[Rfam]
RNA: Editing element of GABA-3 exon 9
RNA sequence: AAAGUGGCCUAUGCCACAGCUAUGGAUUGGUUCAUCGCCGUCUGCUAUGCAUUU
Numbered sequence: 001a002a003a004g005u006g007g008c009c010u011a012u013g014c015c016a017c018a019g020c021u022a023u024g025g026a027u028u029g030g031u032u033c034a035u036c037g038c039c040g041u042c043u044g045c046u047a048u049g050c051a052u053u054u
Base pairs, nucleotide, nucleotide: 001054002053003052007050008049010047011046013045014044016041017040019038020037022035023034024033025032026031